Shown here is a 67-nucleotide RNA sequence from Bacillus sp. FJAT-50079, a member of the family "Bacillaceae-1 RNA".
It is annotated as a small RNA.
The family has 95 seed sequences and 5,721 matches in Rfam 15.1.
It scores 63 bits against the family's covariance model.
RNA sequence: UAUUAAGGAACGAAGCCCAAAUUCGGCACAUCGUGUGGCAACGGCUUUGUGACCAACAUCCUGUUGG
Numbered sequence: 001u002a003u004u005a006a007g008g009a010a011c012g013a014a015g016c017c018c019a020a021a022u023u024c025g026g027c028a029c030a031u032c033g034u035g036u037g038g039c040a041a042c043g044g045c046u047u048u049g050u051g052a053c054c055a056a057c058a059u060c061c062u063g064u065u066g067g
Base pairs, nucleotide, nucleotide: 011049012048013047014046015045016044017043025039027037028036029035053067054066055065056064057063